[Rfam]
Small nucleolar RNA U2-30: a 70-nucleotide RNA sequence from Rousettus aegyptiacus. It is annotated as a C/D-box small nucleolar RNA. On this family, see Tycowski et al., Curr Biol 2004: "Guide RNAs with 5' Caps and Novel Box C/D snoRNA-like Domains for Modification of snRNAs in Metazoa". A search with the family's covariance model found it, with a score of 85 bits. Taxonomically the source falls in Rousettus (Eukaryota, Chordata, Theria, Rousettinae).
RNA sequence: GAGCAAUGAUGUAAAGAUUUUACUACUGACCUCUGUAACUAUGAAGGUUUCUACAUUUUACCUGAGUUCA
Numbered sequence: 001g002a003g004c005a006a007u008g009a010u011g012u013a014a015a016g017a018u019u020u021u022a023c024u025a026c027u028g029a030c031c032u033c034u035g036u037a038a039c040u041a042u043g044a045a046g047g048u049u050u051c052u053a054c055a056u057u058u059u060a061c062c063u064g065a066g067u068u069c070a
Stems, first nucleotide, its partner, number of pairs: 001069004013034001015032002018029002